Annotation
Archaeal large subunit ribosomal RNA: a 249-nucleotide part of an RNA from Halohasta litchfieldiae. The family is grouped with related families in Rfam's "LSU clan". The organism belongs to Halohasta, within Archaea. A search with the family's covariance model found it, with a score of 2786 bits. Pairs were carried over by alignment from the consensus structure, which is taken from published work.
[Rfam]
RNA sequence: GGUAUUUGACGUGAACGAUCGUAUAGUACGAGAGGAACUACGAUUGGGCACCACUGGUGUAUCGGUUGUCCGUCAGGGCAGUUGCCGAGUAACUACGUGCCACGGGGUAAGAGCUGAACGCAUCUAAGCUCGAAACCCACAUGAAAAAGAAAUACCACAGAGGUCACUCAUAGAAGAUGAGUUCGAUAGAUUCGGGGUGUGCGCACCGAGGCAACGAGGUGUUGAGCCCACGAAAACUAACAGACCAAG
Numbered sequence: 001g002g003u004a005u006u007u008g009a010c011g012u013g014a015a016c017g018a019u020c021g022u023a024u025a026g027u028a029c030g031a032g033a034g035g036a037a038c039u040a041c042g043a044u045u046g047g048g049c050a051c052c053a054c055u056g057g058u059g060u061a062u063c064g065g066u067u068g069u070c071c072g073u074c075a076g077g078g079c080a081g082u083u084g085c086c087g088a089g090u091a092a093c094u095a096c097g098u099g100c101c102a103c104g105g106g107g108u109a110a111g112a113g114c115u116g117a118a119c120g121c122a123u124c125u126a127a128g129c130u131c132g133a134a135a136c137c138c139a140c141a142u143g144a145a146a147a148a149g150a151a152a153u154a155c156c157a158c159a160g161a162g163g164u165c166a167c168u169c170a171u172a173g174a175a176g177a178u179g180a181g182u183u184c185g186a187u188a189g190a191u192u193c194g195g196g197g198u199g200u201g202c203g204c205a206c207c208g209a210g211g212c213a214a215c216g217a218g219g220u221g222u223u224g225a226g227c228c229c230a231c232g233a234a235a236a237c238u239a240a241c242a243g244a245c246c247a248a249g
Stems, first nucleotide, its partner, number of pairs: 001156007010143004016046008047101005055095003062088005067080005104138003111131005162246004166182005187239003191234004195229003203222005210215001
Dot-bracket structure: (((((((..((((..((((((((...............))))))))(((((...(((....((((((((((....)))))...)))))....))).)))))..(((....(((((...........)))))....))).))))......))))))).....(((((((((.......)))))....(((.(((((((.....(((((..(....)..)))))....))).))))..)))...))))...